[Rfam]
RNA sequence: AGCAGGCAAGCGCGAGGCACACACCAGGUCGUCUGAUAAGGACGGCAGCCCUUUGGGGUGGGAUCCUGGGUCCUCGGGGCCUGCUAUUCU
Numbered sequence: 001a002g003c004a005g006g007c008a009a010g011c012g013c014g015a016g017g018c019a020c021a022c023a024c025c026a027g028g029u030c031g032u033c034u035g036a037u038a039a040g041g042a043c044g045g046c047a048g049c050c051c052u053u054u055g056g057g058g059u060g061g062g063a064u065c066c067u068g069g070g071u072c073c074u075c076g077g078g079g080c081c082u083g084c085u086a087u088u089c090u
Stems, first nucleotide, its partner, number of pairs: 001085007011077001013076004024069004028046007049058003
RNA: DUF3800-VII RNA